[Rfam]
RNA sequence: CACACGAACAGGCAACCCCGUCGCAAGGCGGUGACGCAAAGCCAACGGGACCCACGCGGUCGGCCGGGCUACCGAA
Numbered sequence: 001c002a003c004a005c006g007a008a009c010a011g012g013c014a015a016c017c018c019c020g021u022c023g024c025a026a027g028g029c030g031g032u033g034a035c036g037c038a039a040a041g042c043c044a045a046c047g048g049g050a051c052c053c054a055c056g057c058g059g060u061c062g063g064c065c066g067g068g069c070u071a072c073c074g075a076a
Base pairs, nucleotide, nucleotide: 012037013036018031019030020029021028022027040070041069042068043067046066047065048064049061050060051059

Rfam assigns this 76-nucleotide RNA sequence from Deinococcus maricopensis to the family "c-di-GMP-I riboswitch aptamer".
The family's consensus secondary structure is taken from published work.
The source organism's lineage runs through Bacteria, Deinococci, Deinococcales, Deinococcus and Deinococcus maricopensis.
The match comes from Rfam's covariance-model search (50 bits).